[Rfam]
RNA sequence: GCUGCCAUAGUGUAGUGGCCAAUCAUGUCGGCCUUUCACGCCGACGACUGGGGUUCGAAUCCCCAUGGCAGCA
Numbered sequence: 001g002c003u004g005c006c007a008u009a010g011u012g013u014a015g016u017g018g019c020c021a022a023u024c025a026u027g028u029c030g031g032c033c034u035u036u037c038a039c040g041c042c043g044a045c046g047a048c049u050g051g052g053g054u055u056c057g058a059a060u061c062c063c064c065a066u067g068g069c070a071g072c073a
Stems, first nucleotide, its partner, number of pairs: 001072007010026003028044005049065005
A member of the RNA family "tRNA" from Methanofollis formosanus, 73 nucleotides long. Rfam links the family to the GO term triplet codon-amino acid adaptor activity. Taxonomically the source falls in Methanofollis (Archaea, Methanobacteriati, Methanobacteriota, Methanomicrobiales).